[Rfam]
RNA sequence: AUUCUUUACUAAGUACUAGUGCCGCAGGAGAGAUUUGAACCCCUGCUGCCCAAGUGCUUAUCGAAGAGU
Dot-bracket structure: (((((((..((((((((.(....(((((.(.........).)))))....).))))))))..)))))))